[Rfam]
RNA sequence: GGCGCGUUAACAAAGCGGUUAUGUAGCGGAUUGCAAAUCCGUUUAGUCCGGUUCGACUCCGGAACGCGCCU
Number, nucleotide and partner (000 for none) at each position: 001g070002g069003c068004g067005c066006g065007u064008u000009a000010a024011c023012a022013a000014a000015g000016c000017g000018g000019u000020u000021a000022u012023g011024u010025a000026g042027c041028g040029g039030a038031u000032u000033g000034c000035a000036a000037a000038u030039c029040c028041g027042u026043u000044u000045a000046g000047u063048c062049c061050g060051g059052u000053u000054c000055g000056a000057c000058u000059c051060c050061g049062g048063a047064a007065c006066g005067c004068g003069c002070c001071u000
Shown here is a 71-nucleotide RNA sequence from Aeromonas simiae, a member of the family "tRNA". It is annotated as a transfer RNA. Rfam links the family to the GO term triplet codon-amino acid adaptor activity.